The family of this 79-nucleotide RNA from Corynebacterium efficiens is "ctRNA". The sequence is in the family's curated seed alignment. The source organism's lineage runs through Bacteria, Bacillati, Actinomycetota, Corynebacteriaceae and Corynebacterium. Rfam classes the family as an antisense RNA. The literature on the family includes a 2003 paper in J Bacteriol by Venkova-Canova et al., "Control of rep gene expression in plasmid pGA1 from Corynebacterium glutamicum". Rfam's curators write: Rolling circle replication plasmids contain a number of mechanisms to maintain a low copy number.

RNA sequence: GCUUUCUCCCAGCUGAUGACUGGGGGUUAGCCGACGCCUCGACAGUUACAGCUGUCGGGGCGUUCAACAUUUUUCAAGU
Number, nucleotide and partner (000 for none) at each position: 001g031002c030003u029004u000005u000006c026007u025008c024009c023010c022011a021012g020013c000014u000015g000016a000017u000018g000019a000020c012021u011022g010023g009024g008025g007026g006027u000028u000029a003030g002031c001032c000033g064034a063035c062036g061037c060038c059039u058040c057041g056042a055043c054044a053045g052046u051047u000048a000049c000050a000051g046052c045053u044054g043055u042056c041057g040058g039059g038060g037061c036062g035063u034064u033065c000066a000067a000068c000069a000070u000071u000072u000073u000074u000075c000076a000077a000078g000079u000